[Rfam]
RNA sequence: GGCCUCCCUCUGCUGGGUAAUCGAUCAUGGAGCCCCGUGAUCGAUCGCCCCACAGAGGGAGGCC
Numbered sequence: 001g002g003c004c005u006c007c008c009u010c011u012g013c014u015g016g017g018u019a020a021u022c023g024a025u026c027a028u029g030g031a032g033c034c035c036c037g038u039g040a041u042c043g044a045u046c047g048c049c050c051c052a053c054a055g056a057g058g059g060a061g062g063c064c
Base pairs, nucleotide, nucleotide: 001064002063003062004061005060006059007058008057009056010055011054012053015050016049017048018047020045021044022043023042024041025040026039027038028037029036030035
RNA: mir-9242 microRNA precursor family
Organism: Myotis lucifugus